[Rfam]
The record is a 136-nucleotide RNA from Prolixibacter sp. SD074, which matches "Molybdenum/Tungsten riboswitch aptamer (Moco RNA motif)" in Rfam. The organism belongs to Prolixibacter, within Bacteria. The literature on the family includes a 2008 paper in Mol Microbiol by Regulski et al., "in molybdenum cofactor and tungsten cofactor metabolism". The base pairs follow the family's consensus structure, which is taken from published work.
RNA sequence: UUUGAUUUUGAACUCCGAGCCUGUUCUCCUAAAGCGAAAGCCAUGGAGAACAGGACGCGGGUCAAUCCGGAAACGGUUUGGCCUCCCGACGGAAUCCGGGAUUCCCGACUUGGAAAGGAGAUAGCGCAAAGGACCC
Numbered sequence: 001u002u003u004g005a006u007u008u009u010g011a012a013c014u015c016c017g018a019g020c021c022u023g024u025u026c027u028c029c030u031a032a033a034g035c036g037a038a039a040g041c042c043a044u045g046g047a048g049a050a051c052a053g054g055a056c057g058c059g060g061g062u063c064a065a066u067c068c069g070g071a072a073a074c075g076g077u078u079u080g081g082c083c084u085c086c087c088g089a090c091g092g093a094a095u096c097c098g099g100g101a102u103u104c105c106c107g108a109c110u111u112g113g114a115a116a117g118g119a120g121a122u123a124g125c126g127c128a129a130a131g132g133a134c135c136c
Stems, first nucleotide, its partner, number of pairs: 003130001011122001013120004020054010034041002059084007067076003085113002